[Rfam]
RNA sequence: UGCACCUAAAAGCGUUUUCUCGAUCGCUUUAUAAACGCCCUUGAAAAUCGUAGCUGUGUGCUAAAGCAAUUGUCGCGGUUGCAAGUGACUUGAUGCGUUUUAAUUGCUCAAUUCCAUUUACACUGUGCACAUAC
Number, nucleotide and partner (000 for none) at each position: 001u000002g061003c060004a059005c058006c056007u000008a000009a000010a000011a000012g051013c050014g049015u047016u046017u045018u044019c043020u000021c000022g038023a000024u000025c000026g000027c000028u000029u000030u000031a000032u000033a000034a000035a000036c000037g000038c022039c000040c000041u000042u000043g019044a018045a017046a016047a015048u000049c014050g013051u012052a000053g000054c000055u000056g006057u000058g005059u004060g003061c002062u000063a000064a000065a000066g000067c000068a000069a000070u000071u000072g000073u000074c127075g126076c125077g124078g123079u122080u000081g000082c000083a119084a118085g117086u116087g115088a113089c000090u111091u110092g000093a000094u000095g107096c106097g105098u000099u000100u000101u000102a000103a000104u000105u097106g096107c095108u000109c000110a091111a090112u000113u088114c000115c087116a086117u085118u084119u083120a000121c000122a079123c078124u077125g076126u075127g074128c000129a000130c000131a000132u000133a000134c000
This 134-nucleotide RNA from Drosophila albomicans belongs to the Rfam family "Small nucleolar RNA psi28S-3316". The source organism's lineage runs through Eukaryota, Metazoa, Eumetazoa, Panorpida and Drosophila. psi28S-3316 is a member of the H/ACA class of snoRNA. This family is responsible for guiding the modification of uridine 3316 in Drosophila 28S rRNA to pseudouridine. The family's consensus secondary structure was predicted with RNAfold. It is annotated as an H/ACA-box small nucleolar RNA. It scores 113 bits against the family's covariance model.